[Rfam]
RNA sequence: UGGUGUCAUAGCUCUUUUAGAAUUUGCCUAGCAGGUUUUCUGGGUUUUGCCAUAACACCCCC
Number, nucleotide and partner (000 for none) at each position: 001u000002g000003g000004u000005g000006u000007c000008a000009u000010a000011g000012c000013u000014c000015u000016u000017u000018u000019a000020g000021a000022a000023u000024u000025u000026g000027c000028c000029u000030a000031g000032c000033a000034g059035g058036u057037u000038u055039u054040c000041u052042g051043g050044g000045u000046u000047u000048u000049g000050c043051c042052a041053u000054a039055a038056c000057a036058c035059c034060c000061c000062c000
Rfam assigns this 62-nucleotide RNA sequence from Cebus imitator to the family "U7 small nuclear RNA".
Lineage of the source: Eukaryota > Gnathostomata > Euteleostomi > Amniota > Cebus.